[Rfam]
Rfam assigns this 105-nucleotide RNA from Thermincola carboxydiphila to the family "c-di-GMP-I riboswitch aptamer". Rfam's curators write: GEMM was predicted in a large-scale screen for bacterial structured RNA regulatory elements. Gene Ontology term of the family: cyclic-di-GMP binding. The base pairs follow the family's consensus structure, which is taken from published work. NCBI's taxonomy places the organism under Bacteria, Bacillati, Clostridia, Thermincolaceae, Thermincola carboxydiphila.

RNA sequence: UCAGUGUUGGUGUAAACCCAGUGAAAGCUGGGGGCGCUAAAGCCCAAGGGCCUAAGGAUACAGUGGGGCCAAUGACCGCUGAUCUACGGCAGCCGGGAUGCAAGG
Numbered sequence: 001u002c003a004g005u006g007u008u009g010g011u012g013u014a015a016a017c018c019c020a021g022u023g024a025a026a027g028c029u030g031g032g033g034g035c036g037c038u039a040a041a042g043c044c045c046a047a048g049g050g051c052c053u054a055a056g057g058a059u060a061c062a063g064u065g066g067g068g069c070c071a072a073u074g075a076c077c078g079c080u081g082a083u084c085u086a087c088g089g090c091a092g093c094c095g096g097g098a099u100g101c102a103a104g105g
Stems, first nucleotide, its partner, number of pairs: 012037002017032006041099001043097002048094002050090003057084003